Small nucleolar RNA SNORA32: a 116-nucleotide RNA from Cricetulus griseus.

RNA sequence: AAGCAGCUACCAGGCUUUCAGAAUGUAAUUUCUCAUUUGCUGUGGACAUAACCUUAAAAAAAAAAAAAAAUCCCCAAGGGUUUUCCAUGUUAGUAGGCAACCUAUUGGGAACAUUU
Numbered sequence: 001a002a003g004c005a006g007c008u009a010c011c012a013g014g015c016u017u018u019c020a021g022a023a024u025g026u027a028a029u030u031u032c033u034c035a036u037u038u039g040c041u042g043u044g045g046a047c048a049u050a051a052c053c054u055u056a057a058a059a060a061a062a063a064a065a066a067a068a069a070a071u072c073c074c075c076a077a078g079g080g081u082u083u084u085c086c087a088u089g090u091u092a093g094u095a096g097g098c099a100a101c102c103u104a105u106u107g108g109g110a111a112c113a114u115u116u
Base pairs, nucleotide, nucleotide: 003052006049010045011044012043025040026039027038028037073109074108075107076106079102080101081100082099090095